About this RNA: The record is a 319-nucleotide part of an RNA from Salmo salar, which matches "Eukaryotic large subunit ribosomal RNA" in Rfam. Rfam's curators put it in the seed alignment.
RNA sequence: GAGUCUAACGCACGCGCAAGUCAGAGGGUUUUCUCCGAACACACCCCGUGGCGCAAUGAAAGUGAGGGCCGGCGCGCGCCGGCUGAGGUGGGAUCCCGGCCCUACGGGGUCGGGCGCACCACCGGCCCGUCUCGCCCGCUCUGUCGGGGAGGUGGAGCGUGAGCGCGUGCGAUAGGACCCGAAAGAUGGUGAACUAUGCCUGGGCAGGGCGAAGCCAGAGGAAACUCUGGUGGAGGUCCGUAGCGGUCCUGACGUGCAAAUCGGUCGUCCGACCUGCGUAUAGGGGCGAAAGACUAAUCGAACCAUCUAGUAGCUGGUU
Numbered sequence: 001g002a003g004u005c006u007a008a009c010g011c012a013c014g015c016g017c018a019a020g021u022c023a024g025a026g027g028g029u030u031u032u033c034u035c036c037g038a039a040c041a042c043a044c045c046c047c048g049u050g051g052c053g054c055a056a057u058g059a060a061a062g063u064g065a066g067g068g069c070c071g072g073c074g075c076g077c078g079c080c081g082g083c084u085g086a087g088g089u090g091g092g093a094u095c096c097c098g099g100c101c102c103u104a105c106g107g108g109g110u111c112g113g114g115c116g117c118a119c120c121a122c123c124g125g126c127c128c129g130u131c132u133c134g135c136c137c138g139c140u141c142u143g144u145c146g147g148g149g150a151g152g153u154g155g156a157g158c159g160u161g162a163g164c165g166c167g168u169g170c171g172a173u174a175g176g177a178c179c180c181g182a183a184a185g186a187u188g189g190u191g192a193a194c195u196a197u198g199c200c201u202g203g204g205c206a207g208g209g210c211g212a213a214g215c216c217a218g219a220g221g222a223a224a225c226u227c228u229g230g231u232g233g234a235g236g237u238c239c240g241u242a243g244c245g246g247u248c249c250u251g252a253c254g255u256g257c258a259a260a261u262c263g264g265u266c267g268u269c270c271g272a273c274c275u276g277c278g279u280a281u282a283g284g285g286g287c288g289a290a291a292g293a294c295u296a297a298u299c300g301a302a303c304c305a306u307c308u309a310g311u312a313g314c315u316g317g318u319u
Stems, first nucleotide, its partner, number of pairs: 005175003009171009020052003026046004056063002087123005095114006125158002127155006136146001178317002181314001185307006194283006201276004205271001207239004214231007243268004248264002251262002285295002